[Rfam]
RNA sequence: AUGCUCACAAGAACUCUUAUCCUGCCAUGUGGCUGUGAUAAGUGCUGGGAAAAUGUGAGCUAGAGCAGGAGUAUUGCUUUGGGAGUGUCCCAUUCUAGGCCACAUGGGACACUACAGUUUCCAAUACAACA
Numbered sequence: 001a002u003g004c005u006c007a008c009a010a011g012a013a014c015u016c017u018u019a020u021c022c023u024g025c026c027a028u029g030u031g032g033c034u035g036u037g038a039u040a041a042g043u044g045c046u047g048g049g050a051a052a053a054u055g056u057g058a059g060c061u062a063g064a065g066c067a068g069g070a071g072u073a074u075u076g077c078u079u080u081g082g083g084a085g086u087g088u089c090c091c092a093u094u095c096u097a098g099g100c101c102a103c104a105u106g107g108g109a110c111a112c113u114a115c116a117g118u119u120u121c122c123a124a125u126a127c128a129a130c131a
Base pairs, nucleotide, nucleotide: 003060004059005058006057007056008055013043014042018040019039020038021037025032026031071127073125074124075123076122079117080116081115084113085112086111087110088109089108090107091106093102
The record is a 131-nucleotide RNA from Sylvia atricapilla, which matches "Small Cajal body specific RNA 23" in Rfam.
From the family's description: scaRNAs are a specific class of small nuclear RNAs which localise to the Cajal bodies and guide the modification of RNA polymerase II transcribed spliceosomal RNAs U1, U2, U4, U5 and U12. ACA11 belongs to the H/ACA box class of guide RNAs as it has the predicted hairpin-hinge-hairpin-tail structure,the conserved H/ACA-box motifs and is found associated with GAR1. H/ACA snRNAs are predicted to guide the modification of uridines to pseudouridines in substrate RNAs however, no target RNA has been identified for scaRNA ACA11.
Its family is annotated with Cajal body, nucleolus and RNA processing in the Gene Ontology.
Pairs were carried over by alignment from the consensus structure, which was predicted with RNAfold.
By type it is a small Cajal body RNA.
For this family Rfam cites "Cajal body-specific small nuclear RNAs: a novel class of 2'-O-methylation and pseudouridylation guide RNAs" (Darzacq et al., EMBO J, 2002).